[Rfam]
RNA: Histone 3' UTR stem-loop
RNA sequence: ACAAAGGCUCUUUUAAGAGCCACCCACUCACACGAAAAGAGCUGU
Numbered sequence: 001a002c003a004a005a006g007g008c009u010c011u012u013u014u015a016a017g018a019g020c021c022a023c024c025c026a027c028u029c030a031c032a033c034g035a036a037a038a039g040a041g042c043u044g045u
Stems, first nucleotide, its partner, number of pairs: 006021006